Description
Purine riboswitch aptamer: a 101-nucleotide sequence from Psychrobacillus sp. FJAT-21963. The family's consensus secondary structure is taken from published work. Gene Ontology term of the family: purine nucleobase biosynthetic process. Its Rfam clan is "Purine riboswitches". About the family: Riboswitches are metabolite binding domains within certain messenger RNAs that serve as precision sensors for their corresponding targets. Lineage of the source: Bacteria > Bacillota > Caryophanales > Bacillaceae > Psychrobacillus. The family has 133 seed sequences and 4,097 matches in Rfam 15.1.
[Rfam]
RNA sequence: AGAAAUGGACGAUUAUCUCCCCAUAUAUGCUAAAGAAUUGGCUUUAGCGUCUCUACCAAGUCACCGUAAAUGACAGGACUAUGAGGGAAAGCGACUUUUGG
Numbered sequence: 001a002g003a004a005a006u007g008g009a010c011g012a013u014u015a016u017c018u019c020c021c022c023a024u025a026u027a028u029g030c031u032a033a034a035g036a037a038u039u040g041g042c043u044u045u046a047g048c049g050u051c052u053c054u055a056c057c058a059a060g061u062c063a064c065c066g067u068a069a070a071u072g073a074c075a076g077g078a079c080u081a082u083g084a085g086g087g088a089a090a091g092c093g094a095c096u097u098u099u100g101g
Base pairs, nucleotide, nucleotide: 018087019086020085022083023082024081025080029048030047031046032045033044034043035042057077060074061073062072063071